Rfam assigns this 63-nucleotide sequence from Mycolicibacterium rhodesiae to the family "Mycobacterium sRNA Ms_IGR-8". Taxonomically the source falls in Mycolicibacterium rhodesiae (Bacteria, Actinomycetota, Actinomycetes, Mycobacterium (subgen. Mycolicibacterium)). A reference for the family is Li et al. (2013), "Identification of small RNAs in Mycobacterium smegmatis using heterologous Hfq", RNA.

Nucleotides: 063
Base pairs, nucleotide, nucleotide: 022063023062024061025060026059027058028057029056030055031054032053033052035049039045
Number, partner (000 for none) and nucleotide at each position: 001000c002000u003000g004000a005000c006000u007000u008000c009000c010000u011000g012000c013000c014000g015000c016000g017000a018000a019000u020000g021000u022063g023062a024061a025060g026059c027058u028057a029056c030055u031054g032053c033052g034000a035049a036000u037000u038000c039045u040000c041000g042000g043000c044000u045039g046000a047000a048000u049035u050000u051000c052033c053032g054031c055030a056029g057028u058027a059026g060025c061024u062023u063022c